[Rfam]
RNA: Bacterial RNase P class A
RNA sequence: GAAGCGAGCCUGGCCGCCGCUGGCAUCGCCUUCGGGCGGAGCUGGAGGAAGGUCCGGACUGCACAGGGCGGCGUAGCAGUCAACGGCUGUCCACCGUGAGGUGAGGAUCAGAGCAACAGAGACGAGUCGGCGGCGGCCGCAAGGCAGGCGCCGGGUGAAACGGGCAAUCUCUACGCGCAGCAAUACCAAAUAGGCCGGCGUGGCCGCGCGAGUCUCGACUCGCCCGGCUGGAAGUGUGGCUCCGCACGAGCCGGCGGGUAGGUAGCACCGAGCCGGGAAGGUAUGCCCGGCCCAGAGGAUUGGCGGUCACGGACGGGCGGCGAAAGGGGCCCGUCCGCACAGAAUCCGGCCUAUCGGCUCGCUUCACAC
Number, nucleotide and partner (000 for none) at each position: 001g365002a364003a363004g362005c361006g360007a359008g358009c357010c356011u000012g308013g307014c306015c305016g304017c303018c302019g000020c045021u044022g043023g042024c041025a000026u039027c038028g037029c000030c000031u000032u000033c000034g000035g000036g000037c028038g027039g026040a000041g024042c023043u022044g021045g020046a000047g000048g000049a000050a352051g351052g350053u000054c349055c348056g347057g346058a345059c180060u179061g178062c177063a000064c000065a000066g242067g241068g240069c239070g000071g176072c175073g174074u173075a172076g090077c089078a088079g087080u086081c000082a000083a000084c000085g000086g080087c079088u078089g077090u076091c105092c103093a102094c101095c100096g000097u000098g000099a000100g095101g094102u093103g092104a000105g091106g171107a170108u000109c000110a000111g169112a168113g165114c164115a000116a000117c000118a000119g000120a000121g000122a000123c000124g000125a000126g000127u000128c154129g000130g151131c150132g149133g000134c147135g000136g145137c144138c143139g000140c000141a000142a000143g138144g137145c136146a000147g134148g000149c132150g131151c130152c000153g000154g128155g000156u000157g000158a000159a000160a000161c000162g000163g000164g114165c113166a000167a000168u112169c111170u107171c106172u075173a074174c073175g072176c071177g062178c061179a060180g059181c000182a000183a000184u264185a263186c262187c261188a000189a000190a000191u000192a000193g000194g255195c254196c253197g252198g251199c250200g000201u000202g000203g000204c000205c000206g000207c000208g000209c000210g000211a000212g000213u000214c000215u000216c000217g000218a000219c000220u000221c000222g000223c000224c000225c000226g000227g000228c000229u000230g000231g000232a000233a000234g247235u246236g245237u244238g000239g069240c068241u067242c066243c000244g237245c236246a235247c234248g000249a000250g199251c198252c197253g196254g195255c194256g000257g000258g000259u000260a000261g187262g186263u185264a184265g000266c000267a000268c000269c000270g000271a000272g291273c290274c289275g288276g287277g286278a000279a284280g000281g000282u000283a000284u279285g000286c277287c276288c275289g274290g273291c272292c000293c000294a000295g000296a000297g000298g000299a000300u000301u000302g018303g017304c016305g015306g014307u013308c012309a000310c000311g000312g000313a000314c000315g000316g000317g000318c000319g000320g000321c000322g000323a000324a000325a000326g000327g000328g000329g000330c000331c000332c000333g000334u000335c000336c000337g000338c000339a000340c000341a000342g000343a000344a000345u058346c057347c056348g055349g054350c052351c051352u050353a000354u000355c000356g010357g009358c008359u007360c006361g005362c004363u003364u002365c001366a000367c000368a000369c000